[Rfam]
RNA sequence: CUAUUUUGACAAUAGCCGAUGCCCUUUCUUUUGAUGCCCUUACACGGACGCUGCUUGCAUGGUGGGCGAACGUGCCAUAGCCCAUUUCAUGUGUUAGGGCAACGCAGAUUAGACGGCACCCUACAUUGUAUCUGUACGAAAGGCGAAUACUCUAUUAUGACAAG
Numbered sequence: 001c002u003a004u005u006u007u008g009a010c011a012a013u014a015g016c017c018g019a020u021g022c023c024c025u026u027u028c029u030u031u032u033g034a035u036g037c038c039c040u041u042a043c044a045c046g047g048a049c050g051c052u053g054c055u056u057g058c059a060u061g062g063u064g065g066g067c068g069a070a071c072g073u074g075c076c077a078u079a080g081c082c083c084a085u086u087u088c089a090u091g092u093g094u095u096a097g098g099g100c101a102a103c104g105c106a107g108a109u110u111a112g113a114c115g116g117c118a119c120c121c122u123a124c125a126u127u128g129u130a131u132c133u134g135u136a137c138g139a140a141a142g143g144c145g146a147a148u149a150c151u152c153u154a155u156u157a158u159g160a161c162a163a164g
Stems, first nucleotide, its partner, number of pairs: 001015004027143007035136001036100005042094004050058002061086007104135005110130001111122002
RT-2 RNA: a 164-nucleotide RNA.
By type it is a small RNA.